[Rfam]
RNA: transfer-messenger RNA
Organism: Ferruginibacter sp.
RNA sequence: GGGGCUGACCGGUUUUGACAGCAUAGCUCUUUGUAAGUGUAAGCAUGUAGUGCGUUGGAUAAUUAGCACUUAAAUCUGAAUAUUCAAACUUUUAAAUGGCAAUACUCAGUAUGCCAUGGCUGCCUAAUUAUUAAUUAGGUCGUCAUUAGGGCCGUUGAAUGGGCAUUCCUGUUGCCAAAUUCCUCCGCCGACUCAAACAGAAAACGGGAUGCUUUAGCCGAAUGAAGUGACGGCUGCUUAAGAUCAUUCUUCUAAGGAAACAAUUGGUUUGUUAUGCCCCGGUUGUUUCCCGACAAACAAUGCAUAAAUAAACAUGUAGAAAGCUUAUGACGAAUAUGUUUGGACCAGGGUUCGAUUCCCUGCAGCUCCACUU
Numbered sequence: 001g002g003g004g005c006u007g008a009c010c011g012g013u014u015u016u017g018a019c020a021g022c023a024u025a026g027c028u029c030u031u032u033g034u035a036a037g038u039g040u041a042a043g044c045a046u047g048u049a050g051u052g053c054g055u056u057g058g059a060u061a062a063u064u065a066g067c068a069c070u071u072a073a074a075u076c077u078g079a080a081u082a083u084u085c086a087a088a089c090u091u092u093u094a095a096a097u098g099g100c101a102a103u104a105c106u107c108a109g110u111a112u113g114c115c116a117u118g119g120c121u122g123c124c125u126a127a128u129u130a131u132u133a134a135u136u137a138g139g140u141c142g143u144c145a146u147u148a149g150g151g152c153c154g155u156u157g158a159a160u161g162g163g164c165a166u167u168c169c170u171g172u173u174g175c176c177a178a179a180u181u182c183c184u185c186c187g188c189c190g191a192c193u194c195a196a197a198c199a200g201a202a203a204a205c206g207g208g209a210u211g212c213u214u215u216a217g218c219c220g221a222a223u224g225a226a227g228u229g230a231c232g233g234c235u236g237c238u239u240a241a242g243a244u245c246a247u248u249c250u251u252c253u254a255a256g257g258a259a260a261c262a263a264u265u266g267g268u269u270u271g272u273u274a275u276g277c278c279c280c281g282g283u284u285g286u287u288u289c290c291c292g293a294c295a296a297a298c299a300a301u302g303c304a305u306a307a308a309u310a311a312a313c314a315u316g317u318a319g320a321a322a323g324c325u326u327a328u329g330a331c332g333a334a335u336a337u338g339u340u341u342g343g344a345c346c347a348g349g350g351u352u353c354g355a356u357u358c359c360c361u362g363c364a365g366c367u368c369c370a371c372u373u
Stems, first nucleotide, its partner, number of pairs: 001369007019342002021339005031330006039324002044316005049070005056086006119143002152190001154188002157182004162176003167209007212242003216238003220234001226253002229250001256290009266280002272308002275304003346362005
Dot-bracket structure: (((((((...........(((((((.....((((((..((...((((([[[[[..((((((....]]]]]..........))))))................................((.....................))........[.[[.[[[[.[[[..(((((((]]]..]]]]....]].]............)))))))..(((.(((.(.....[[.[....).))).))).......].]]..(((((((((.((....[[.[[[.)).)))))))))...........]]]..]]...)))))......))))))))....))))).))...(((((.......))))))))))))....